[Rfam]
RNA sequence: CGCAGUCUCCUUGGGGAGUAGCCUGCUUCGCUUGCACGAAGCGCUUAUGUCAACAUAUUCAGCCCUCCCGGCUGUGGUAUAAGCGACCAUCCGGUUUGGCGAGACCAGCGAGCGGUUCAUGUUUUCCCGGUCGGGCGCAUGGAUUGCUUGUCUGUUGCGUCCCGGCCGCUGU
Dot-bracket structure: ........................(((............)))((((((((((.......(((((.....)))))))))))))))....((................................................................................))
The record is a 172-nucleotide RNA sequence from Oxalobacter formigenes, which matches "Manganese Mn2+ riboswitch aptamer (yybP-ykoY)" in Rfam. It scores 55 bits against the family's covariance model.